This 141-nucleotide RNA from Indicator maculatus belongs to the Rfam family "Small nucleolar RNA SNORD94".
[Rfam]
RNA sequence: AUGGCAGUGAUGAUUGGCGCAGGGGUACGGACCUCAGCUGCACCAUGGGAGCUGAGUGCAGGCUGCUCUCCCAGUGCAGCCGGCGUGUGGCCAGCUCGCGGGAAGCAGCUUUGCACGAGACUUUGCCGAAAGCUGAGCUGU
Numbered sequence: 001a002u003g004g005c006a007g008u009g010a011u012g013a014u015u016g017g018c019g020c021a022g023g024g025g026u027a028c029g030g031a032c033c034u035c036a037g038c039u040g041c042a043c044c045a046u047g048g049g050a051g052c053u054g055a056g057u058g059c060a061g062g063c064u065g066c067u068c069u070c071c072c073a074g075u076g077c078a079g080c081c082g083g084c085g086u087g088u089g090g091c092c093a094g095c096u097c098g099c100g101g102g103a104a105g106c107a108g109c110u111u112u113g114c115a116c117g118a119g120a121c122u123u124u125g126c127c128g129a130a131a132g133c134u135g136a137g138c139u140g141u
Stems, first nucleotide, its partner, number of pairs: 001141005

For this family Rfam cites "Purified box C/D snoRNPs are able to reproduce site-specific 2'-O-methylation of target RNA in vitro" (Galardi et al., Mol Cell Biol, 2002). Rfam classes the family as a C/D-box small nucleolar RNA.